[Rfam]
RNA sequence: GCCAAAGUGGCGGAAUUGGUAGACGCGCACGACUCAAACUCGUGUUCCUUCGGGAGUGAGGGUUCGAUUCCCUCCUUUGGUA
Numbered sequence: 001g002c003c004a005a006a007g008u009g010g011c012g013g014a015a016u017u018g019g020u021a022g023a024c025g026c027g028c029a030c031g032a033c034u035c036a037a038a039c040u041c042g043u044g045u046u047c048c049u050u051c052g053g054g055a056g057u058g059a060g061g062g063u064u065c066g067a068u069u070c071c072c073u074c075c076u077u078u079g080g081u082a
Stems, first nucleotide, its partner, number of pairs: 001081007010026003028044005058074005

Shown here is an 82-nucleotide RNA sequence from Marinigracilibium pacificum, a member of the family "tRNA". Its Rfam clan is "tRNA clan". The match comes from Rfam's covariance-model search (58 bits). The organism belongs to Marinigracilibium, within Bacteria.